Shown here is a 37-nucleotide sequence from Roseiflexus castenholzii, a member of the family "CRISPR RNA direct repeat element".

RNA sequence: AUUUCCGAAUUUUCGGCUCGCAGAAGAGCACUGAAAC
Dot-bracket structure: ..........((((.((((......))))...)))).
Description:
Lineage of the source: Bacteria > Chloroflexota > Chloroflexales > Roseiflexaceae > Roseiflexus castenholzii. It scores 50 bits against the family's covariance model.